Overview: tRNA: a 74-nucleotide sequence from Pedococcus cremeus. Pairs were carried over by alignment from the consensus structure, which is taken from published work. Gene Ontology term of the family: triplet codon-amino acid adaptor activity. The match comes from Rfam's covariance-model search (63 bits).
RNA sequence: GCCCCCGUAGCUCAGCUGGAUAGAGCAAGGGCCUUCUAAUCCCGAGGUCGCAGGUUCGAGUCCUGCCGGGGGCA
Numbered sequence: 001g002c003c004c005c006c007g008u009a010g011c012u013c014a015g016c017u018g019g020a021u022a023g024a025g026c027a028a029g030g031g032c033c034u035u036c037u038a039a040u041c042c043c044g045a046g047g048u049c050g051c052a053g054g055u056u057c058g059a060g061u062c063c064u065g066c067c068g069g070g071g072g073c074a
Base pairs, nucleotide, nucleotide: 001073002072003071004070005069006068007067010026011025012024013023029043030042031041050066051065052064053063054062